[Rfam]
RNA sequence: AGGCUUACCUGGCAGGGGAGACACCCUGAUCAUGAAGUGGUCUUCCCAGGGUGCGGCUCAUCCAUUGGACCAUGGAUGUGCUGACCCCUGCGAUAUCCCCAAUGAGGAGAAACUCUACUGCUUAAUUUGUGGUAUUAGGGGACUGCAUUGACAAUUUCCAC
Numbered sequence: 001a002g003g004c005u006u007a008c009c010u011g012g013c014a015g016g017g018g019a020g021a022c023a024c025c026c027u028g029a030u031c032a033u034g035a036a037g038u039g040g041u042c043u044u045c046c047c048a049g050g051g052u053g054c055g056g057c058u059c060a061u062c063c064a065u066u067g068g069a070c071c072a073u074g075g076a077u078g079u080g081c082u083g084a085c086c087c088c089u090g091c092g093a094u095a096u097c098c099c100c101a102a103u104g105a106g107g108a109g110a111a112a113c114u115c116u117a118c119u120g121c122u123u124a125a126u127u128u129g130u131g132g133u134a135u136u137a138g139g140g141g142a143c144u145g146c147a148u149u150g151a152c153a154a155u156u157u158c159c160a161c
Base pairs, nucleotide, nucleotide: 012121013120014119015118016047017046018045019044020043023041024040025039048089049088050087051086053085055082056081057080059078060077061076062075063074092115093114094112096109098107099106138159139158140157141156142155144153145152
Annotation
Shown here is a 161-nucleotide RNA sequence from Cavia porcellus, a member of the family "U1 spliceosomal RNA". By type it is a spliceosomal small nuclear RNA.